SAM riboswitch aptamer (S box leader): a 94-nucleotide sequence from Hymenobacter sp. PAMC 26628. Pairs were carried over by alignment from the consensus structure, which is taken from published work. The SAM riboswitch is found upstream of a number of genes which code for proteins involved in methionine or cysteine biosynthesis in Gram-positive bacteria. The SAM riboswitch acts at the level of transcription termination control. The predicted structure consists of a complex stem-loop region followed by a single stem loop terminator region. An alternative and mutually exclusive form involves bases in the 3' segment of helix 1 with those in the 5' region of helix 5 to form a structure termed the anti-terminator form.
RNA sequence: UUUUUAUAAAGAGGCGCGGAGAGACAGGCUCGAUGAACCGCCGGCAACCCCCAGCUACCCGCUGGUACGGUGCCAAUUCCUGAUCAUAUAAAAA
Number, nucleotide and partner (000 for none) at each position: 001u094002u093003u092004u091005u090006a089007u088008a087009a000010a000011g000012a000013g042014g041015c040016g039017c000018g000019g000020a000021g031022a030023g029024a000025c082026a081027g080028g079029c023030u022031c021032g000033a000034u000035g000036a000037a000038c000039c016040g015041c014042c013043g074044g073045c072046a071047a000048c070049c069050c000051c065052c064053a063054g000055c000056u000057a000058c000059c000060c000061g000062c000063u053064g052065g051066u000067a000068c000069g049070g048071u046072g045073c044074c043075a000076a000077u000078u086079c028080c027081u026082g025083a000084u000085c000086a078087u008088a007089u006090a005091a004092a003093a002094a001